[Rfam]
RNA sequence: UCCGAGACUAGAGAUACAGCCUGACAGCUGUCUUCCUGGUGCAGAGUUCUCAGAGAGAAGCUGCUGGUCUUGAUUCACUGCUGAGGGUGGUGAGUGCACCCGCCCCCUAAUGUCCAGGUCAGAUACGUAC
Numbered sequence: 001u002c003c004g005a006g007a008c009u010a011g012a013g014a015u016a017c018a019g020c021c022u023g024a025c026a027g028c029u030g031u032c033u034u035c036c037u038g039g040u041g042c043a044g045a046g047u048u049c050u051c052a053g054a055g056a057g058a059a060g061c062u063g064c065u066g067g068u069c070u071u072g073a074u075u076c077a078c079u080g081c082u083g084a085g086g087g088u089g090g091u092g093a094g095u096g097c098a099c100c101c102g103c104c105c106c107c108u109a110a111u112g113u114c115c116a117g118g119u120c121a122g123a124u125a126c127g128u129a130c
Stems, first nucleotide, its partner, number of pairs: 002053001004051003007047003013042001015041003018037002023032003064122007072114001076112002079109002083107001085105006
The record is a 130-nucleotide RNA from Myotis davidii, which matches "Small nucleolar RNA SNORA3/SNORA45 family" in Rfam.
About the family: The members of this family belong to the H/ACA class of snoRNAs which are thought to guide the sites of modification of uridines to pseudouridines. This family includes mouse snoMBI-28 and human homologues ACA3 (SNORA3) and ACA3-2 (SNORA45). Both ACA3 and ACA3-2 share the same host gene. MBI-28, ACA3 and ACA3-2 are all predicted to guide the pseudouridylation of residues in 28S rRNA.
On this family, see Huttenhofer et al., EMBO J 2001: "RNomics: an experimental approach that identifies 201 candidates for novel, small, non-messenger RNAs in mouse".
Rfam links the family to the GO terms nucleolus and RNA processing.
The match comes from Rfam's covariance-model search (55 bits).